[Rfam]
RNA sequence: UGUUAUUAAAAUAAAGGGUCAAUGGUUCCUUGUCUUUGGACACAUAAGAAUUGGAGGAAAAGAAAUGUGGAUUUGGAUAAGUCUGGGGCCAGCUUGCUCUUUGCAGACUCAGAUCAAUCAUCCCACAUAG
Numbered sequence: 001u002g003u004u005a006u007u008a009a010a011a012u013a014a015a016g017g018g019u020c021a022a023u024g025g026u027u028c029c030u031u032g033u034c035u036u037u038g039g040a041c042a043c044a045u046a047a048g049a050a051u052u053g054g055a056g057g058a059a060a061a062g063a064a065a066u067g068u069g070g071a072u073u074u075g076g077a078u079a080a081g082u083c084u085g086g087g088g089c090c091a092g093c094u095u096g097c098u099c100u101u102u103g104c105a106g107a108c109u110c111a112g113a114u115c116a117a118u119c120a121u122c123c124c125a126c127a128u129a130g
Base pairs, nucleotide, nucleotide: 003056004055006053016043018041019040020039024030025029069123070122071121073120091109092108094106095105096104097103

Annotation:
The family of this 130-nucleotide RNA sequence from Sciurus carolinensis is "Small nucleolar RNA SNORA38". The base pairs follow the family's consensus structure, which was predicted with RNAfold. NCBI's taxonomy places the organism under Eukaryota, Eumetazoa, Vertebrata, Eutheria, Sciurus. It is annotated as an H/ACA-box small nucleolar RNA. The match comes from Rfam's covariance-model search (95 bits). About the family: ACA38 is a member of the H/ACA class of snoRNA that guide the sites of modification of uridines to pseudouridines. Gene Ontology terms of the family: RNA processing, Cajal body and nucleolus.